[Rfam]
RNA: Small nucleolar RNA SNORA38
Organism: Castor canadensis
RNA sequence: CCCUCUUACAAAGGCACGUUUUGGUUCCCUACCUUUGGACAUGUAAGACUUGGAGGCAAAGACAUGGAUGUGGAGAAAUCUGGGGCUAGCUCGCUCCCUGUAGGCUCAGAACCAACCAGAACACACAA
Numbered sequence: 001c002c003c004u005c006u007u008a009c010a011a012a013g014g015c016a017c018g019u020u021u022u023g024g025u026u027c028c029c030u031a032c033c034u035u036u037g038g039a040c041a042u043g044u045a046a047g048a049c050u051u052g053g054a055g056g057c058a059a060a061g062a063c064a065u066g067g068a069u070g071u072g073g074a075g076a077a078a079u080c081u082g083g084g085g086c087u088a089g090c091u092c093g094c095u096c097c098c099u100g101u102a103g104g105c106u107c108a109g110a111a112c113c114a115a116c117c118a119g120a121a122c123a124c125a126c127a128a
Stems, first nucleotide, its partner, number of pairs: 002056005015043002018040004023029002088106004093101002